[Rfam]
RNA: Group II catalytic intron D1-D4-1
Organism: Mucilaginibacter paludis
RNA sequence: CAACCCGGAUGGAGACGUUCGGCUGAACAUUCAGGAGUCAGCAGAGGCCAUAGUAUUCCGCAGUCGCGGAAGAAGGGC
Numbered sequence: 001c002a003a004c005c006c007g008g009a010u011g012g013a014g015a016c017g018u019u020c021g022g023c024u025g026a027a028c029a030u031u032c033a034g035g036a037g038u039c040a041g042c043a044g045a046g047g048c049c050a051u052a053g054u055a056u057u058c059c060g061c062a063g064u065c066g067c068g069g070a071a072g073a074a075g076g077g078c
Stems, first nucleotide, its partner, number of pairs: 001025002005022007038045002047078003056071006